[Rfam]
RNA: Eukaryotic large subunit ribosomal RNA, nucleotides 2986 to 3370
RNA sequence: GAAGUGAUGUUGCGACAGUAAUCCAACUUAGUACGAGAGGAACAGUUGGUUCAGAUAAUUGGUAAAUACAGUUAGCUGAAAAGCUAGUGCUGUGAAGCUACCAUCUGUAGGAUUAUGACUGAACGCCUCUAAGUCAGAAUCCAUGCUGGAAAGCAACGUUUCGAUCAAUAAUAAAUGAAAAACAAUAGGCCAAUAGGCCCAGAUUCAGAAAAUGCUGGUUAAGCUCAGAGGCCGUAAAAGGUCCUGACUUGCCGGUGAAUCGUAAUUUCGAAUUAUUAUUGAUGCAAAUCGUUUGUAGACGACUUAACUGGGACAGGGUAUUGUACGUGUGAGAGUAGGCUUGUCCUACGAUCCACUGAGAUUCAGCCCUUGUUCUACGAUUUGU
Dot-bracket structure: .....((((((((..((((.(.((((((...............)))))).)(((((...(((....(((((((((((....))))))..)))))...)))..)))))..((....(((((...........)))))....))..))))....))))))))....(((((((........................................................................................................)))))))...(((((.(..(.......)..)....((((((((.((.....(((..(..(((((.....)))))..).)))....))....))).)))))...)))))..